[Rfam]
RNA: Group I catalytic intron
Organism: Galerina marginata
RNA sequence: GGGUUUUCUUAAUUGAAUUCCCGAAUUUAAAUGCUAGUCCAAGUUAAAACUUGGGCAAGACCUUCAAACUGACGGGGAACUCCUAAAGCUUCAGACACCAAGCCUUAUUCCGAAAGGGUAGGGUGGCCAGGUUAAUAGCCUCGGGUAUGGUAAAAGAUCUGAAGAUAUUACAAUGGACAAUCCGCAGCCAAGGCCCUAACGAAGUGUUUCACUUCUAUGGGACAGGUUCAGAGACUAGAUGGAGGUCGGUCUCAUGUAAAUGAGGCUUAAGGUAUAGUCCGGCUUCAAGUGAAAACUUGUU
Numbered sequence: 001g002g003g004u005u006u007u008c009u010u011a012a013u014u015g016a017a018u019u020c021c022c023g024a025a026u027u028u029a030a031a032u033g034c035u036a037g038u039c040c041a042a043g044u045u046a047a048a049a050c051u052u053g054g055g056c057a058a059g060a061c062c063u064u065c066a067a068a069c070u071g072a073c074g075g076g077g078a079a080c081u082c083c084u085a086a087a088g089c090u091u092c093a094g095a096c097a098c099c100a101a102g103c104c105u106u107a108u109u110c111c112g113a114a115a116g117g118g119u120a121g122g123g124u125g126g127c128c129a130g131g132u133u134a135a136u137a138g139c140c141u142c143g144g145g146u147a148u149g150g151u152a153a154a155a156g157a158u159c160u161g162a163a164g165a166u167a168u169u170a171c172a173a174u175g176g177a178c179a180a181u182c183c184g185c186a187g188c189c190a191a192g193g194c195c196c197u198a199a200c201g202a203a204g205u206g207u208u209u210c211a212c213u214u215c216u217a218u219g220g221g222a223c224a225g226g227u228u229c230a231g232a233g234a235c236u237a238g239a240u241g242g243a244g245g246u247c248g249g250u251c252u253c254a255u256g257u258a259a260a261u262g263a264g265g266c267u268u269a270a271g272g273u274a275u276a277g278u279c280c281g282g283c284u285u286c287a288a289g290u291g292a293a294a295a296c297u298u299g300u301u
Stems, first nucleotide, its partner, number of pairs: 001021003005017003026033001059247005065241002070186002073184004081177003187227002194221003201215004231280001233279005249266007286299005